[Rfam]
This 172-nucleotide RNA sequence from Morganella morganii belongs to the Rfam family "M-box riboswitch aptamer (ykoK leader)". Rfam describes the family as follows. M-box riboswitch, also know as ykoK leader is described as a metaloregulatory RNA that sense divalent metals and function as a genetic control element of genes related to divalent metal transport in bacteria. It was first reported upstream of the B.subtilis ykoK gene and genes with related functions in other bacteria. Rfam's curators put it in the seed alignment. Lineage of the source: Bacteria > Gammaproteobacteria > Enterobacterales > Morganellaceae > Morganella.

RNA sequence: GCAGUAUCUCGUUAGGCGAGGCUCCUAUACAAACAAAGGUUGCUGAUCUGACGACGUCGAGAGACGCCCAAGAUUAGGACAGGUUAUAUCGAACAGAAGGUAUAACCCGAAGUAACUUCCCGCAGUCUGCGGGAUACGUUGUAUAGUGCUAAACCGAGACGUGAGAUAGCCU
Numbered sequence: 001g002c003a004g005u006a007u008c009u010c011g012u013u014a015g016g017c018g019a020g021g022c023u024c025c026u027a028u029a030c031a032a033a034c035a036a037a038g039g040u041u042g043c044u045g046a047u048c049u050g051a052c053g054a055c056g057u058c059g060a061g062a063g064a065c066g067c068c069c070a071a072g073a074u075u076a077g078g079a080c081a082g083g084u085u086a087u088a089u090c091g092a093a094c095a096g097a098a099g100g101u102a103u104a105a106c107c108c109g110a111a112g113u114a115a116c117u118u119c120c121c122g123c124a125g126u127c128u129g130c131g132g133g134a135u136a137c138g139u140u141g142u143a144u145a146g147u148g149c150u151a152a153a154c155c156g157a158g159a160c161g162u163g164a165g166a167u168a169g170c171c172u
Stems, first nucleotide, its partner, number of pairs: 005168006011160002013098001016155001020150003025146008039116005045075005055066004082107004088101003118134005